[Rfam]
RNA sequence: AUAGCCUCCGAAUAACGAGAAGGUGAAAUAUAGGAACACCUUCUGGUUCAGACAGAGGCUUAUAUCAAAACUCGAAUCAGUUUUUGUGAGUGAAAAAGCUCUCCCCUUUUUUGCUCUUCAGAUUCCAAUAUCCUUCAAUGGAUAGAUUCGAAUAUCU
Numbered sequence: 001a002u003a004g005c006c007u008c009c010g011a012a013u014a015a016c017g018a019g020a021a022g023g024u025g026a027a028a029u030a031u032a033g034g035a036a037c038a039c040c041u042u043c044u045g046g047u048u049c050a051g052a053c054a055g056a057g058g059c060u061u062a063u064a065u066c067a068a069a070a071c072u073c074g075a076a077u078c079a080g081u082u083u084u085u086g087u088g089a090g091u092g093a094a095a096a097a098g099c100u101c102u103c104c105c106c107u108u109u110u111u112u113g114c115u116c117u118u119c120a121g122a123u124u125c126c127a128a129u130a131u132c133c134u135u136c137a138a139u140g141g142a143u144a145g146a147u148u149c150g151a152a153u154a155u156c157u
Stems, first nucleotide, its partner, number of pairs: 003060006014048003018044004023039003073150006081122003086117001088115001090114001093111006129144005
Shown here is a 157-nucleotide RNA from Arabidopsis lyrata, a member of the family "Small nucleolar RNA snoR138". Rfam's curators put it in the seed alignment. Rfam classes the family as an H/ACA-box small nucleolar RNA.